This 127-nucleotide sequence from Jaculus jaculus belongs to the Rfam family "Small nucleolar RNA SNORD22". It scores 83 bits against the family's covariance model. Lineage of the source: Eukaryota > Metazoa > Teleostomi > Rodentia > Jaculus. Rfam 15.1 lists 1,081 matches to the family in 414 species.
RNA sequence: ACCCAGUGGAGAGACAUUCACAUGCCUUAUUUCUUGGUCAGCCCCAGAGCCUGAAAAGGUGAACCUGUUGGUGCAAAACAAAUAAUAAUAACAGGAAAUAUAUUCCAGAAGAAACUGUCUGAGGGUU
Numbered sequence: 001a002c003c004c005a006g007u008g009g010a011g012a013g014a015c016a017u018u019c020a021c022a023u024g025c026c027u028u029a030u031u032u033c034u035u036g037g038u039c040a041g042c043c044c045c046a047g048a049g050c051c052u053g054a055a056a057a058g059g060u061g062a063a064c065c066u067g068u069u070g071g072u073g074c075a076a077a078a079c080a081a082a083u084a085a086u087a088a089u090a091a092c093a094g095g096a097a098a099u100a101u102a103u104u105c106c107a108g109a110a111g112a113a114a115c116u117g118u119c120u121g122a123g124g125g126u127u
Base pairs, nucleotide, nucleotide: 001126002125003124004123